[Rfam]
RNA: L19-Flavobacteria ribosomal protein leader
RNA sequence: UAACCACUGACGAUAUACGUGUAUGUUG
Dot-bracket structure: ((((...(.(((.....)))..).))))